[Rfam]
RNA sequence: CAUGGGUUUAUGGUAUAUUCCAUCUCUUGCACACUGGACCAGCGUUCCGGGCCUCUGGCUGCAGCUUGGUGUGCUGGGGAUGGAAUACUUCAUUGAUUCAUG
Numbered sequence: 001c002a003u004g005g006g007u008u009u010a011u012g013g014u015a016u017a018u019u020c021c022a023u024c025u026c027u028u029g030c031a032c033a034c035u036g037g038a039c040c041a042g043c044g045u046u047c048c049g050g051g052c053c054u055c056u057g058g059c060u061g062c063a064g065c066u067u068g069g070u071g072u073g074c075u076g077g078g079g080a081u082g083g084a085a086u087a088c089u090u091c092a093u094u095g096a097u098u099c100a101u102g
Base pairs, nucleotide, nucleotide: 001102002101003100004099005098006097007096008095010093011092012091013090016087017086018085019084020083021082022081023080024079025078026077027076029074030073031072032071033070034069035068036067037066039064
A member of the RNA family "MIR2950 microRNA precursor family" from Tetracentron sinense, 102 nucleotides long. The source organism's lineage runs through Eukaryota, Streptophyta, Spermatophyta, Magnoliopsida and Tetracentron.